[Rfam]
RNA sequence: CGGCCUGCCGCAGGCCGGAAAUCAUGCGGCGGCCGGGCAAGGGCCCGGCUUUGGAAAGG
Numbered sequence: 001c002g003g004c005c006u007g008c009c010g011c012a013g014g015c016c017g018g019a020a021a022u023c024a025u026g027c028g029g030c031g032g033c034c035g036g037g038c039a040a041g042g043g044c045c046c047g048g049c050u051u052u053g054g055a056a057a058g059g
Stems, first nucleotide, its partner, number of pairs: 007030006032049006
RNA: M23 RNA